[Rfam]
RNA sequence: GCUCGGGUGGCGGAAUUGGCAGACGCGCCAGACUUAGGAUCUGGUGGAGUAACAAUCCGUGUGGGUUCGAGUCCCUCCCCGAGCA
Numbered sequence: 001g002c003u004c005g006g007g008u009g010g011c012g013g014a015a016u017u018g019g020c021a022g023a024c025g026c027g028c029c030a031g032a033c034u035u036a037g038g039a040u041c042u043g044g045u046g047g048a049g050u051a052a053c054a055a056u057c058c059g060u061g062u063g064g065g066u067u068c069g070a071g072u073c074c075c076u077c078c079c080c081g082a083g084c085a
Base pairs, nucleotide, nucleotide: 001084002083003082004081005080006079007078010026011025012024028044029043030042031041032040061077063075064074065073
A member of the RNA family "tRNA" from Candidatus Xiphinematobacter sp. Idaho Grape, 85 nucleotides long. The family's consensus secondary structure is taken from published work. The family's RNA type in Rfam is transfer RNA. The match comes from Rfam's covariance-model search (55 bits). Taxonomically the source falls in Candidatus Xiphinematobacter (Bacteria, Pseudomonadati, Verrucomicrobiota, Spartobacteria).